The record is a 237-nucleotide RNA sequence from Trifolium subterraneum, which matches "MIR2655 microRNA precursor family" in Rfam.
[Rfam]
RNA sequence: CCCUUAUUUUUUAAAAUUUUCAAGUUGGUCCCUUAUCUUUAUUUUAGGUUUCAAGUUGGGCCCUUUCGUCAAAUUUUUUACUAUUACCGUUAAAUUUGGACACGUGGCACACUUGGACAGAUGACGUGCACGUGUCCAAAUUUAAAGAUAAUAGUAAAAAAAAGUUGAUGGAAGGGACCAACUUGAAACCUAAACUAAAGAUAAGGGACCAAGUUGAAACUUUUAAAAGAUAAGGGA
Numbered sequence: 001c002c003c004u005u006a007u008u009u010u011u012u013a014a015a016a017u018u019u020u021c022a023a024g025u026u027g028g029u030c031c032c033u034u035a036u037c038u039u040u041a042u043u044u045u046a047g048g049u050u051u052c053a054a055g056u057u058g059g060g061c062c063c064u065u066u067c068g069u070c071a072a073a074u075u076u077u078u079u080a081c082u083a084u085u086a087c088c089g090u091u092a093a094a095u096u097u098g099g100a101c102a103c104g105u106g107g108c109a110c111a112c113u114u115g116g117a118c119a120g121a122u123g124a125c126g127u128g129c130a131c132g133u134g135u136c137c138a139a140a141u142u143u144a145a146a147g148a149u150a151a152u153a154g155u156a157a158a159a160a161a162a163a164g165u166u167g168a169u170g171g172a173a174g175g176g177a178c179c180a181a182c183u184u185g186a187a188a189c190c191u192a193a194a195c196u197a198a199a200g201a202u203a204a205g206g207g208a209c210c211a212a213g214u215u216g217a218a219a220c221u222u223u224u225a226a227a228a229g230a231u232a233a234g235g236g237a
Base pairs, nucleotide, nucleotide: 002235003234004233005232006231007230008229023214025212027210028209029208031206032205033204034203035202036201037200038199039198040197041196043194045192046191047190
Pairs were carried over by alignment from the consensus structure, which was predicted with RNAalifold. The source organism's lineage runs through Eukaryota, Streptophyta, Magnoliopsida, Papilionoideae and Trifolium.